This 146-nucleotide RNA belongs to the Rfam family "Lysine riboswitch aptamer".
RNA sequence: CAAGGUUUUAGCGACUAAAAGAGUAUAGUCGCUGAAAAGUAGGGCUUUAGCGACUAAAAUGAAGUUUAGUCGCCGAAUAUAGGGUUUUUAGCGACUAAACUUUGUUUCGUAGCCAAAAGUCAUAGUUUUUGGCGACUAAAAUACUU
Number, nucleotide and partner (000 for none) at each position: 001c000002a000003a000004g000005g000006u141007u140008u139009u138010a137011g073012c072013g071014a070015c069016u068017a067018a066019a065020a000021g000022a000023g000024u000025a000026u056027a055028g054029u053030c052031g051032c050033u049034g048035a047036a000037a000038a000039g000040u000041a000042g000043g000044g000045c000046u000047u035048u034049a033050g032051c031052g030053a029054c028055u027056a026057a000058a000059a000060u000061g000062a000063a000064g000065u019066u018067u017068a016069g015070u014071c013072g012073c011074c000075g000076a000077a107078u000079a105080u104081a103082g102083g101084g100085u099086u098087u097088u000089u000090a000091g000092c000093g000094a000095c000096u000097a087098a086099a085100c084101u083102u082103u081104g080105u079106u000107u077108c000109g000110u000111a000112g000113c132114c131115a130116a129117a128118a127119g126120u000121c000122a000123u000124a000125g000126u119127u118128u117129u116130u115131g114132g113133c000134g000135a000136c000137u010138a009139a008140a007141a006142u000143a000144c000145u000146u000
A search with the family's covariance model found it, with a score of 32 bits.